[Rfam]
RNA sequence: GGCUUUUUGAAUCCGUGUAGAGAUUUCAUCAGACACCAACGCAUUUAGGCUGAUUAGACUUCCAAGAUAAGUGAAGUU
Numbered sequence: 001g002g003c004u005u006u007u008u009g010a011a012u013c014c015g016u017g018u019a020g021a022g023a024u025u026u027c028a029u030c031a032g033a034c035a036c037c038a039a040c041g042c043a044u045u046u047a048g049g050c051u052g053a054u055u056a057g058a059c060u061u062c063c064a065a066g067a068u069a070a071g072u073g074a075a076g077u078u
Base pairs, nucleotide, nucleotide: 002077003076004075005074006073008071011068012067013066016064017063020061021060022059024058025057026056028054029053030052
RNA: mir-3492 microRNA precursor family
Organism: Schistosoma bovis